[Rfam]
RNA sequence: CGUGCCAAGGAGCGUUGCGACAGACACAGUAGAAUUUGAAACUGUUCUCUGCCAGGCUUGGUAUCGUCUUUACAUGCAACCGCGCUCACGUUAC
Numbered sequence: 001c002g003u004g005c006c007a008a009g010g011a012g013c014g015u016u017g018c019g020a021c022a023g024a025c026a027c028a029g030u031a032g033a034a035u036u037u038g039a040a041a042c043u044g045u046u047c048u049c050u051g052c053c054a055g056g057c058u059u060g061g062u063a064u065c066g067u068c069u070u071u072a073c074a075u076g077c078a079a080c081c082g083c084g085c086u087c088a089c090g091u092u093a094c
Base pairs, nucleotide, nucleotide: 002064003063004062005061006060007059008058021051022050023049024048026046